[Rfam]
RNA sequence: AGAUGAGAGAUACACCCCGCCCACAGGGGACUGUGGGCGACAACAGGUCGGAGCCUCCCCAGCCUCGACCUGGCCGUGCCCUCGCGCACACACCCGGAGUCUCCGGCUCCGGUUCUCCUCACCGAUCGGA
Numbered sequence: 001a002g003a004u005g006a007g008a009g010a011u012a013c014a015c016c017c018c019g020c021c022c023a024c025a026g027g028g029g030a031c032u033g034u035g036g037g038c039g040a041c042a043a044c045a046g047g048u049c050g051g052a053g054c055c056u057c058c059c060c061a062g063c064c065u066c067g068a069c070c071u072g073g074c075c076g077u078g079c080c081c082u083c084g085c086g087c088a089c090a091c092a093c094c095c096g097g098a099g100u101c102u103c104c105g106g107c108u109c110c111g112g113u114u115c116u117c118c119u120c121a122c123c124g125a126u127c128g129g130a
Base pairs, nucleotide, nucleotide: 004121005120006119007118009117010116018039019038020037021036022035023034024033025032026031044072045071046070047069049067050066051065053063054062076089077088078087079086094112095111096110097109098108099107100106101105122129123128
Dot-bracket structure: ...((((.((.......(((((((((....)))))))))....((((.(((.((.......)).))).))))...((((......))))....((((((((...))))))))...))))))((....)).
Rfam assigns this 130-nucleotide sequence from Streptomyces griseoviridis to the family "Streptomyces RNA 5676". A search with the family's covariance model found it, with a score of 130 bits. Lineage of the source: Bacteria > Actinomycetota > Kitasatosporales > Streptomycetaceae > Streptomyces. The literature on the family includes a 2011 paper in RNA Biol by Vockenhuber et al., "Deep sequencing-based identification of small non-coding RNAs in Streptomyces coelicolor". Pairs were carried over by alignment from the consensus structure. Identified by deep sequencing of transcriptome at the end of exponential growth phase. Appears longer on northern blot than sequencing transcript. This indicates processing step. Streptomyces specific.